The record is a 157-nucleotide RNA sequence, which matches "DUF2800 RNA" in Rfam.
Rfam's curators put it in the seed alignment.
Pairs were carried over by alignment from the consensus structure, which is taken from published work.
[Rfam]
RNA sequence: UCGUUUCAUUGUACAUCUGCUAAUUACGGAUGGUUCAGUGCAAUGAUGCGAACAACUGAAUAACAACCAGUGGACUACUGAACAGGAAGCUGCAAUUCGAAACGGAGAAAUCCGUGUUGGACUGCGGUCAGAGUUUUUCACCCUUUUCAGUCGUGAA
Numbered sequence: 001u002c003g004u005u006u007c008a009u010u011g012u013a014c015a016u017c018u019g020c021u022a023a024u025u026a027c028g029g030a031u032g033g034u035u036c037a038g039u040g041c042a043a044u045g046a047u048g049c050g051a052a053c054a055a056c057u058g059a060a061u062a063a064c065a066a067c068c069a070g071u072g073g074a075c076u077a078c079u080g081a082a083c084a085g086g087a088a089g090c091u092g093c094a095a096u097u098c099g100a101a102a103c104g105g106a107g108a109a110a111u112c113c114g115u116g117u118u119g120g121a122c123u124g125c126g127g128u129c130a131g132a133g134u135u136u137u138u139c140a141c142c143c144u145u146u147u148c149a150g151u152c153g154u155g156a157a
Stems, first nucleotide, its partner, number of pairs: 001051004007045007014032005033083006068153001070151002073148002089128005102115005